A member of the RNA family "mir-128 microRNA precursor family" from Scleropages formosus, 83 nucleotides long. On this family, see Chen et al., Genes Dev 2005: "The developmental miRNA profiles of zebrafish as determined by small RNA cloning". Pairs were carried over by alignment from the consensus structure, which was predicted with RNAalifold. Its family is annotated with miRNA-mediated post-transcriptional gene silencing and RISC complex in the Gene Ontology.
[Rfam]
RNA sequence: CUGCAGCUCCGCUGGGGGCCGUUGCACUGUAAGAGAUUGAGUAGAAGGUCUCACAGUGAACCGGUCUCUUUUGGUGCUGCCUG
Numbered sequence: 001c002u003g004c005a006g007c008u009c010c011g012c013u014g015g016g017g018g019c020c021g022u023u024g025c026a027c028u029g030u031a032a033g034a035g036a037u038u039g040a041g042u043a044g045a046a047g048g049u050c051u052c053a054c055a056g057u058g059a060a061c062c063g064g065u066c067u068c069u070u071u072u073g074g075u076g077c078u079g080c081c082u083g
Stems, first nucleotide, its partner, number of pairs: 006077002009074002015068007025058006033052003